Histone 3' UTR stem-loop: a 47-nucleotide sequence from Pleuronectes platessa.
Nucleotides: 047
Base pairs, nucleotide, nucleotide: 006021007020008019009018010017011016
Number, partner (000 for none) and nucleotide at each position: 001000u002000a003000a004000a005000a006021g007020g008019c009018u010017c011016u012000u013000u014000u015000a016011a017010g018009a019008g020007c021006c022000a023000c024000a025000c026000a027000c028000g029000u030000c031000u032000a033000u034000c035000c036000a037000c038000a039000a040000a041000g042000a043000g044000c045000u046000g047000u
Background: The family's consensus secondary structure is taken from published work. The match comes from Rfam's covariance-model search (36 bits). The organism belongs to Pleuronectes, within Eukaryota. Rfam's curators write: The mRNAs of metazoan histone genes lack a poly-A tail. 3' end processing occurs at a site between a highly conserved stem-loop (modelled by this family) and a purine rich region around 20 nts downstream (the histone downstream element, or HDE). The stem-loop is bound by a 31 kDa stem-loop binding protein (SLBP - also termed the histone hairpin binding protein, or HBP). Together with U7 snRNA binding of the HDE, SLBP binding nucleate s the formation of the processing complex. The histone 3' UTR stem-loop is also involved in nucleocytoplasmic transport of the mRNA, and in stability regulation and translation efficiency in the cytoplasm.